[Rfam]
RNA sequence: UAGAAUAUGGAAGAUAAGGGAAUUCGGCAAAUUGGAUCCGUAACUUUGGGACAAGGAUUGGCUCUAAGGGUUGCAUGAAAAGUGUGUGUAAAAGAUCGAAUGUGGACUGCAUUGAUUUUAACUGAGACUGUUGUUUGAGUUGAGAUGGAUGCAUGAAACGUUUGAAAUUUACACAUAGAUUGAACUUUUCAUGAAAGAACAACCGACUUAGAACUGGUACGGACCCUGGGAAUCCGACUGUUUAAUUAAAACCAAGCAUUGCGAUACCUUUUGCAAGUUUUUACGCGAUGUGAUUUCUGCCCAGUGCUCUGAAUGUCAAAUUGACGAGAUUCGAUUAAGCGCGGGUAAACGGCGGGAGUAACUAUGACUCUCUUAAGGUAGCCAAAUGCCUCGUCAUCUAAUUAGUGACGCGCAUGAAUGGAUCAACGAGAUUCCCACUGUCCCUAUUUUCCUUCUAGCGAACCCACAGCCAAGGGAACGGUCUUGGUGA
Numbered sequence: 001u002a003g004a005a006u007a008u009g010g011a012a013g014a015u016a017a018g019g020g021a022a023u024u025c026g027g028c029a030a031a032u033u034g035g036a037u038c039c040g041u042a043a044c045u046u047u048g049g050g051a052c053a054a055g056g057a058u059u060g061g062c063u064c065u066a067a068g069g070g071u072u073g074c075a076u077g078a079a080a081a082g083u084g085u086g087u088g089u090a091a092a093a094g095a096u097c098g099a100a101u102g103u104g105g106a107c108u109g110c111a112u113u114g115a116u117u118u119u120a121a122c123u124g125a126g127a128c129u130g131u132u133g134u135u136u137g138a139g140u141u142g143a144g145a146u147g148g149a150u151g152c153a154u155g156a157a158a159c160g161u162u163u164g165a166a167a168u169u170u171a172c173a174c175a176u177a178g179a180u181u182g183a184a185c186u187u188u189u190c191a192u193g194a195a196a197g198a199a200c201a202a203c204c205g206a207c208u209u210a211g212a213a214c215u216g217g218u219a220c221g222g223a224c225c226c227u228g229g230g231a232a233u234c235c236g237a238c239u240g241u242u243u244a245a246u247u248a249a250a251a252c253c254a255a256g257c258a259u260u261g262c263g264a265u266a267c268c269u270u271u272u273g274c275a276a277g278u279u280u281u282u283a284c285g286c287g288a289u290g291u292g293a294u295u296u297c298u299g300c301c302c303a304g305u306g307c308u309c310u311g312a313a314u315g316u317c318a319a320a321u322u323g324a325c326g327a328g329a330u331u332c333g334a335u336u337a338a339g340c341g342c343g344g345g346u347a348a349a350c351g352g353c354g355g356g357a358g359u360a361a362c363u364a365u366g367a368c369u370c371u372c373u374u375a376a377g378g379u380a381g382c383c384a385a386a387u388g389c390c391u392c393g394u395c396a397u398c399u400a401a402u403u404a405g406u407g408a409c410g411c412g413c414a415u416g417a418a419u420g421g422a423u424c425a426a427c428g429a430g431a432u433u434c435c436c437a438c439u440g441u442c443c444c445u446a447u448u449u450u451c452c453u454u455c456u457a458g459c460g461a462a463c464c465c466a467c468a469g470c471c472a473a474g475g476g477a478a479c480g481g482u483c484u485u486g487g488u489g490a
Stems, first nucleotide, its partner, number of pairs: 001457004009452008018443003035059005044049001060215002063212006069204005075192009084176003088172004097164007108153006115146009125136004216220001228436007235428002240252002256291008268277003295422003299353003304350002306346004311342001314341003321334004354372006373377001393409005470487005